RNA: Bacterial RNase P class A
RNA sequence: UUUUUAGGUUGGAAGUUCGCAUAAUUGUACUAUAAAUGUUUGAGAGUAUAUGUUUUGAGGAAAGUCUGGACUCCCAUGAUUGAAGAUGCCAGUUAAUAACUGGAGUUUGUGAAAUGAUGGCUGAAAAAAUGUUCUUAUUAAGGCUUUAUUUCGGCUAAGUCAGCUGAGCAGAUAUGGAAAGUGCCACAGAAAAGAUACAGCUCGUCCCCGCGAAUUCAAUAAGCAAUUUCUUAGGAAAUCGGACAAGCAAUGGUGAAAUGGCGGUGUAAGAGACCCCCAUAAUUUUAGCAAUAAAAUUAGUAUGGCAAACCCCAUCUGGAGUAAGAUUAAACGUGCUGUUUCUAACGCAUUUUUGUUAUGGCGUAUAACAGAAAGCUUUCACUUGAGCCCAAUGAUAUAACCACAACUGAAAUCACCAGAAAAUGAUAAUCACAUUUCAAGGAAUAAAAAUCUUGACAGCAAGGUAAAUCGCUAUAUUUCUCCAGCAAUGGAUGAAAAGAGAUAAAUGAACUUCUAUUACAGAAUCCAGCUUAUAGACUUAAAAACCCC
Number, nucleotide and partner (000 for none) at each position: 001u545002u544003u543004u542005u541006a540007g539008g538009u537010u536011g534012g514013a513014a512015g511016u510017u509018c508019g000020c057021a056022u000023a054024a053025u052026u000027g000028u000029a000030c000031u000032a000033u000034a000035a000036a000037u000038g000039u000040u000041u000042g000043a000044g000045a000046g000047u000048a000049u000050a000051u000052g025053u024054u023055u000056u021057g020058a000059g000060g000061a000062a532063a531064g530065u000066c529067u528068g527069g526070a525071c321072u320073c319074c318075c000076a000077u000078g000079a000080u448081u447082g000083a000084a317085g316086a315087u314088g313089c103090c102091a101092g100093u099094u000095a000096a000097u000098a000099a093100c092101u091102g090103g089104a175105g173106u172107u171108u170109g169110u168111g000112a000113a000114a000115u000116g000117a000118u000119g000120g000121c000122u000123g000124a000125a000126a000127a000128a000129a000130u000131g000132u000133u000134c000135u000136u000137a000138u000139u000140a000141a000142g000143g000144c000145u000146u000147u000148a000149u000150u000151u000152c000153g000154g000155c000156u000157a000158a000159g000160u000161c000162a000163g000164c000165u000166g000167a000168g110169c109170a108171g107172a106173u105174a000175u104176g312177g311178a000179a000180a000181g310182u309183g306184c305185c304186a000187c000188a000189g000190a000191a000192a000193a000194g000195a000196u000197a000198c252199a251200g248201c247202u246203c000204g244205u243206c242207c241208c000209c000210g000211c000212g000213a000214a000215u000216u000217c000218a000219a000220u000221a000222a000223g000224c000225a000226a000227u000228u000229u000230c000231u000232u000233a000234g000235g000236a000237a000238a000239u000240c000241g207242g206243a205244c204245a000246a202247g201248c200249a000250a000251u199252g198253g000254u000255g000256a000257a000258a000259u000260g278261g277262c000263g275264g274265u273266g000267u000268a000269a000270g000271a000272g000273a265274c264275c263276c000277c261278c260279a301280u299281a298282a297283u296284u295285u294286u293287a292288g000289c000290a000291a000292u287293a286294a285295a284296a283297u282298u281299a280300g000301u279302a000303u000304g185305g184306c183307a000308a000309a182310c181311c177312c176313c088314a087315u086316c085317u084318g074319g073320a072321g071322u000323a000324a000325g470326a469327u468328u467329a000330a000331a000332c000333g000334u461335g460336c459337u458338g457339u456340u000341u000342c000343u000344a000345a000346c000347g000348c000349a000350u000351u000352u000353u000354u000355g000356u000357u000358a000359u000360g000361g000362c000363g000364u000365a000366u000367a000368a000369c000370a000371g000372a000373a000374a000375g000376c000377u000378u000379u000380c000381a000382c000383u000384u000385g000386a000387g000388c000389c000390c000391a000392a000393u000394g000395a000396u000397a000398u000399a000400a000401c000402c000403a000404c000405a000406a000407c000408u000409g000410a000411a000412a000413u000414c000415a000416c000417c000418a000419g000420a000421a000422a000423a000424u000425g000426a000427u000428a000429a000430u000431c000432a000433c000434a000435u000436u000437u000438c000439a000440a454441g453442g452443a451444a000445u000446a000447a081448a080449a000450a000451u443452c442453u441454u440455g000456a339457c338458a337459g336460c335461a334462a000463g000464g000465u000466a000467a328468a327469u326470c325471g000472c000473u000474a000475u000476a000477u497478u496479u495480c494481u492482c491483c490484a489485g000486c000487a000488a000489u484490g483491g482492a481493u000494g480495a479496a478497a477498a000499g000500a000501g000502a000503u000504a000505a000506a000507u000508g018509a017510a016511c015512u014513u013514c012515u000516a000517u000518u000519a000520c000521a000522g000523a000524a000525u070526c069527c068528a067529g066530c064531u063532u062533a000534u011535a000536g010537a009538c008539u007540u006541a005542a004543a003544a002545a001546c000547c000548c000549c000